A member of the RNA family "T-box leader" from Niallia nealsonii, 222 nucleotides long. A reference for the family is Gerdeman et al. (2003), "Solution structure of the Bacillus subtilis T-box antiterminator RNA: seven nucleotide bulge characterized by stacking and flexibility", J Mol Biol. The organism belongs to Niallia, within Bacteria. The match comes from Rfam's covariance-model search (119 bits). Gene Ontology term of the family: tRNA binding. By type it is a cis-regulatory leader.
RNA sequence: UCAAACGCAAUGAUUGGGAUUAUUAAGGAAUAUUCAUCGUUUAGAGAGCUGUCGGUUGGUGAAAGACAGUCGAUGAACUCCCCAACUCACCCAGGAGUGGUAAGACUGAUAUGUAGGUCUUAACGGUUGACUGCCGUAAUAAAGUCUUUAAGCGGGUUCAUUUAGUUUUUUAAAUGAAUCAAAAAGAGUGGUACCACGUAGGCAAAGCCUGUCGUCUCUUAU
Numbered sequence: 001u002c003a004a005a006c007g008c009a010a011u012g013a014u015u016g017g018g019a020u021u022a023u024u025a026a027g028g029a030a031u032a033u034u035c036a037u038c039g040u041u042u043a044g045a046g047a048g049c050u051g052u053c054g055g056u057u058g059g060u061g062a063a064a065g066a067c068a069g070u071c072g073a074u075g076a077a078c079u080c081c082c083c084a085a086c087u088c089a090c091c092c093a094g095g096a097g098u099g100g101u102a103a104g105a106c107u108g109a110u111a112u113g114u115a116g117g118u119c120u121u122a123a124c125g126g127u128u129g130a131c132u133g134c135c136g137u138a139a140u141a142a143a144g145u146c147u148u149u150a151a152g153c154g155g156g157u158u159c160a161u162u163u164a165g166u167u168u169u170u171u172a173a174a175u176g177a178a179u180c181a182a183a184a185a186g187a188g189u190g191g192u193a194c195c196a197c198g199u200a201g202g203c204a205a206a207g208c209c210u211g212u213c214g215u216c217u218c219u220u221a222u
Base pairs, nucleotide, nucleotide: 007098008097015093016092017091018090027081028080029079031077037073038072039071048070049069050068051067052066053065101122102121103120104119105118106117107116124136125135126134155180156179157178158177159176160175161174162173163172164171185219186218187217188216196215197214198213